[Rfam]
RNA: SAM riboswitch aptamer (S box leader)
Organism: Thermoflavimicrobium daqui
RNA sequence: UUCUUAUCUAGAGAGGCGGAGGGACUGGCCCAAGGAAGCCUCGGCAACGGGCUCUCGACUUAAGAGCGCUGUGCCAAAUCCAGCAAGCAUCAAGCUUGGAAGAUAAGAA
Numbered sequence: 001u002u003c004u005u006a007u008c009u010a011g012a013g014a015g016g017c018g019g020a021g022g023g024a025c026u027g028g029c030c031c032a033a034g035g036a037a038g039c040c041u042c043g044g045c046a047a048c049g050g051g052c053u054c055u056c057g058a059c060u061u062a063a064g065a066g067c068g069c070u071g072u073g074c075c076a077a078a079u080c081c082a083g084c085a086a087g088c089a090u091c092a093a094g095c096u097u098g099g100a101a102g103a104u105a106a107g108a109a
Base pairs, nucleotide, nucleotide: 001109002108003107004106005105006104007103008102013042014041015040016039017038021031022030023029025083026082027081028080043075044074045073046072048071049070051067052066053065054064079101084098085097086096087095088094